The record is a 230-nucleotide part of an RNA from Veillonella sp. oral taxon 780, which matches "Bacterial large subunit ribosomal RNA" in Rfam. A search with the family's covariance model found it, with a score of 2827 bits. The source organism's lineage runs through Bacteria, Bacillati, Negativicutes, Veillonellales and Veillonella sp. oral taxon 780.
[Rfam]
RNA sequence: GAGUUACUGUCACUAGCGAGGUUAAGCGGAAAACGUGGAGCCGAAGCGAAAGCGAGUCUGAAUAGGGCGAAGAGUUAGUGGUAGUAGACCCGAAACCGUAGUGAUCUAUCCAUGGCCAGGUUGAAGCACAGGUAAAAUUGUGUGGAGGACCGAACUCGUGAGCGUUGAAAAGCUUUGGGAUGAGUUGUGGAUAGGGGUGAAAUGCCAAUCGAACACGGAGAUAGCUGGUU
Numbered sequence: 001g002a003g004u005u006a007c008u009g010u011c012a013c014u015a016g017c018g019a020g021g022u023u024a025a026g027c028g029g030a031a032a033a034c035g036u037g038g039a040g041c042c043g044a045a046g047c048g049a050a051a052g053c054g055a056g057u058c059u060g061a062a063u064a065g066g067g068c069g070a071a072g073a074g075u076u077a078g079u080g081g082u083a084g085u086a087g088a089c090c091c092g093a094a095a096c097c098g099u100a101g102u103g104a105u106c107u108a109u110c111c112a113u114g115g116c117c118a119g120g121u122u123g124a125a126g127c128a129c130a131g132g133u134a135a136a137a138u139u140g141u142g143u144g145g146a147g148g149a150c151c152g153a154a155c156u157c158g159u160g161a162g163c164g165u166u167g168a169a170a171a172g173c174u175u176u177g178g179g180a181u182g183a184g185u186u187g188u189g190g191a192u193a194g195g196g197g198u199g200a201a202a203u204g205c206c207a208a209u210c211g212a213a214c215a216c217g218g219a220g221a222u223a224g225c226u227g228g229u230u
Base pairs, nucleotide, nucleotide: 005086006085007084008083009082010081011080012079013078014077015076016075017074020042021041022040023039026036027035028034046053047052056068057067058066059065089228090227092225096218097217098216099215101214102213106194107193108192109191110190111189112188113187114186115185116184117182119151120150121149122148126143127142128141129140130139131138155179156178157177160175161174162173163172196206197205198204